RNA sequence: GCCGGGCGGGGUGGCUCCCGCCUGUAAUCCCAGCGUCCGGGGAGGCUGAGGCUGGAGGAUCCCUCGAGGCCGGGAGUUCGGGGCCGCCGCGGGCCGAGCCGCGCGGGCGUCCUCGCCGAGGCCGGCAUCGGCAUGGUGGCCGCCGGGGAGCCGCGAGCCACCAGGCCGCCUAAGGAGGGGCGAACCGGCCCAGGCUGGAGACAGAGCAGGCCAAAGCCCCCGUGCCGGUCAGCCGUGGGAUCGCGCCCGUGAAUCGCCCCCGCGGCCUCGCCUGGACGAGGCGGCGAGACCCAGCCUCGCU
Numbered sequence: 001g002c003c004g005g006g007c008g009g010g011g012u013g014g015c016u017c018c019c020g021c022c023u024g025u026a027a028u029c030c031c032a033g034c035g036u037c038c039g040g041g042g043a044g045g046c047u048g049a050g051g052c053u054g055g056a057g058g059a060u061c062c063c064u065c066g067a068g069g070c071c072g073g074g075a076g077u078u079c080g081g082g083g084c085c086g087c088c089g090c091g092g093g094c095c096g097a098g099c100c101g102c103g104c105g106g107g108c109g110u111c112c113u114c115g116c117c118g119a120g121g122c123c124g125g126c127a128u129c130g131g132c133a134u135g136g137u138g139g140c141c142g143c144c145g146g147g148g149a150g151c152c153g154c155g156a157g158c159c160a161c162c163a164g165g166c167c168g169c170c171u172a173a174g175g176a177g178g179g180g181c182g183a184a185c186c187g188g189c190c191c192a193g194g195c196u197g198g199a200g201a202c203a204g205a206g207c208a209g210g211c212c213a214a215a216g217c218c219c220c221c222g223u224g225c226c227g228g229u230c231a232g233c234c235g236u237g238g239g240a241u242c243g244c245g246c247c248c249g250u251g252a253a254u255c256g257c258c259c260c261c262g263c264g265g266c267c268u269c270g271c272c273u274g275g276a277c278g279a280g281g282c283g284g285c286g287a288g289a290c291c292c293a294g295c296c297u298c299g300c301u
Stems, first nucleotide, its partner, number of pairs: 001046003004023008028043003048298008060287002063284002068277001070275005079270009089260001091258001093257002096254001099251001103250008111239002114237003118233001120230009129168004134163007144153003169175002177220005187212004195204003
RNA: Metazoan signal recognition particle RNA
Organism: Salvator merianae